Rfam assigns this 132-nucleotide sequence from Sousa chinensis to the family "Small nucleolar RNA SNORA70". The match comes from Rfam's covariance-model search (119 bits).

[Rfam]
RNA sequence: UUGCAGCCAAUUUGGCCAACUGUGCUCUUUUCCCCAUGGGCGCCCAGUGUGCAGUAGCUGCAAACAGCCUCCUCGGUAGUGUGUGCAGCCUGCUGCCUGUACAGGUUACCCUAAGGUACCUUGAAGACAGCC
Dot-bracket structure: .((((.............((((..(.((..........)).)..)))).)))).....................(((.........(((((...........)))))..........)))............
Overview: About the family: snoRNA U70 seems to be exclusive to mammals and is a member of the H/ACA class of snoRNA which contain H (ANANNA) and ACA box motifs. H/ACA box snoRNAs are involved in the conversion of uridines to pseudouridines (5-ribosyluracil) a constituent of structural RNAs (transfer, ribosomal, small nuclear, and small nucleolar). Pairs were carried over by alignment from the consensus structure, which was predicted with PFOLD.